A member of the RNA family "chrB-b RNA" from Novosphingobium nitrogenifigens, 46 nucleotides long. Rfam classes the family as a cis-regulatory element.
Nucleotides: 046
Stems, first nucleotide, its partner, number of pairs: 002021005011046005026036003
Number, partner (000 for none) and nucleotide at each position: 001000c002021c003020g004019g005018g006017a007000c008000c009000a010000a011046g012045c013044a014043a015042c016000c017006u018005c019004c020003c021002g022000a023000u024000c025000a026036g027035g028034c029000u030000c031000u032000u033000c034028g035027c036026c037000c038000a039000a040000g041000u042015g043014u044013u045012g046011c
The match comes from Rfam's covariance-model search (41 bits). The source organism's lineage runs through Bacteria, Pseudomonadati, Pseudomonadota, Sphingomonadaceae and Novosphingobium nitrogenifigens.